Source information
Shown here is a 254-nucleotide RNA from Cryptotermes secundus, a member of the family "Arthropod 7SK RNA". The family's RNA type in Rfam is non-coding RNA gene. A search with the family's covariance model found it, with a score of 119 bits. The base pairs follow the family's consensus structure, which is taken from published work.

[Rfam]
RNA sequence: GGAAGUGUUGUGCUAGUGAUGGCACAGCUGAACAUUGAUCGCUAAGAGAUAGGCAGAUCUGCUCAGUACGUGUUGUCACGUGGUCGAUUCCAGAAGUCUGUAUACUCACGUUGCCAUGUCGCACGGUAGAGUAUGUCAGGACUCCUCGAACUACCGCGAAUUUCCAAAUUGGGGUUUUUUCGACUAGGUCAGACGAGGUAAUUUAGUCGCUUCCAUAUGCCGGCACUGCAGUGAGCAGUAUGCCAUUUUUUUUU
Numbered sequence: 001g002g003a004a005g006u007g008u009u010g011u012g013c014u015a016g017u018g019a020u021g022g023c024a025c026a027g028c029u030g031a032a033c034a035u036u037g038a039u040c041g042c043u044a045a046g047a048g049a050u051a052g053g054c055a056g057a058u059c060u061g062c063u064c065a066g067u068a069c070g071u072g073u074u075g076u077c078a079c080g081u082g083g084u085c086g087a088u089u090c091c092a093g094a095a096g097u098c099u100g101u102a103u104a105c106u107c108a109c110g111u112u113g114c115c116a117u118g119u120c121g122c123a124c125g126g127u128a129g130a131g132u133a134u135g136u137c138a139g140g141a142c143u144c145c146u147c148g149a150a151c152u153a154c155c156g157c158g159a160a161u162u163u164c165c166a167a168a169u170u171g172g173g174g175u176u177u178u179u180u181c182g183a184c185u186a187g188g189u190c191a192g193a194c195g196a197g198g199u200a201a202u203u204u205a206g207u208c209g210c211u212u213c214c215a216u217a218u219g220c221c222g223g224c225a226c227u228g229c230a231g232u233g234a235g236c237a238g239u240a241u242g243c244c245a246u247u248u249u250u251u252u253u254u
Stems, first nucleotide, its partner, number of pairs: 001214007016079005028066003033061002037059004041054003222244003225239005
Dot-bracket structure: (((((((........(((((.......(((..((..(((((((........))).))))))..)))........)))))................................................................................................................................))))))).......((((((((.....)))))..)))..........